[Rfam]
RNA sequence: GAGGAGCCCUGCGCCGAGGCUUCGACCCGGUCGGAUCCCCUGACACCACUUCCCCGGUGGCAGGUGGCCCUCCCGGUUCGAAACCGCGACGCAGGGAACGGAUUGG
Numbered sequence: 001g002a003g004g005a006g007c008c009c010u011g012c013g014c015c016g017a018g019g020c021u022u023c024g025a026c027c028c029g030g031u032c033g034g035a036u037c038c039c040c041u042g043a044c045a046c047c048a049c050u051u052c053c054c055c056g057g058u059g060g061c062a063g064g065u066g067g068c069c070c071u072c073c074c075g076g077u078u079c080g081a082a083a084c085c086g087c088g089a090c091g092c093a094g095g096g097a098a099c100g101g102a103u104u105g106g
Stems, first nucleotide, its partner, number of pairs: 010093004015088002018085002021082005027076004033070002036067002039064004044059003

Annotation:
The family of this 106-nucleotide RNA from Propioniciclava sinopodophylli is "mraW RNA". A search with the family's covariance model found it, with a score of 58 bits. By type it is a cis-regulatory element. NCBI's taxonomy places the organism under Bacteria, Bacillati, Actinomycetes, Propionibacteriales, Propioniciclava.